[Rfam]
RNA: tRNA
Organism: Candidatus Thiothrix singaporensis
RNA sequence: CGGGGCGUAGCGCAGCCGGUAGCGCACCACACUGGGGGUGUGGGGGUCGGAGGUUCGAAUCCUCUCGUCCCGA
Numbered sequence: 001c002g003g004g005g006c007g008u009a010g011c012g013c014a015g016c017c018g019g020u021a022g023c024g025c026a027c028c029a030c031a032c033u034g035g036g037g038g039u040g041u042g043g044g045g046g047u048c049g050g051a052g053g054u055u056c057g058a059a060u061c062c063u064c065u066c067g068u069c070c071c072g073a
Stems, first nucleotide, its partner, number of pairs: 001072007010025004027043005049065005